[Rfam]
RNA: SAM riboswitch aptamer (S box leader)
Organism: Methylomusa anaerophila
RNA sequence: UUCUCAUCAAGAGUUGGUGGAGGGACUGGCCCGAUGAAACCGCGGCAACCCUUGGGCGGCAAAUUGCCCAAAACGGUGCCAAUUCCUGCGGAUUUCCGCAAGAUGGGAG
Numbered sequence: 001u002u003c004u005c006a007u008c009a010a011g012a013g014u015u016g017g018u019g020g021a022g023g024g025a026c027u028g029g030c031c032c033g034a035u036g037a038a039a040c041c042g043c044g045g046c047a048a049c050c051c052u053u054g055g056g057c058g059g060c061a062a063a064u065u066g067c068c069c070a071a072a073a074c075g076g077u078g079c080c081a082a083u084u085c086c087u088g089c090g091g092a093u094u095u096c097c098g099c100a101a102g103a104u105g106g107g108a109g
Stems, first nucleotide, its partner, number of pairs: 001109008013043001015042004022032003026088001028086002044080004049076002052071006084101001089098003